[Rfam]
RNA sequence: UUGGCCUGCGAAUGGCACUGGAAGAAUUCACGGGGUUUAACAACACUCCCGUGGUCUUUGAGUGCCAUCCUCGGAGCCUC
Numbered sequence: 001u002u003g004g005c006c007u008g009c010g011a012a013u014g015g016c017a018c019u020g021g022a023a024g025a026a027u028u029c030a031c032g033g034g035g036u037u038u039a040a041c042a043a044c045a046c047u048c049c050c051g052u053g054g055u056c057u058u059u060g061a062g063u064g065c066c067a068u069c070c071u072c073g074g075a076g077c078c079u080c
Base pairs, nucleotide, nucleotide: 003077006074007073008072012068013067014066015065016064017063019061021059022057024056025055028054029053030052031051032050033049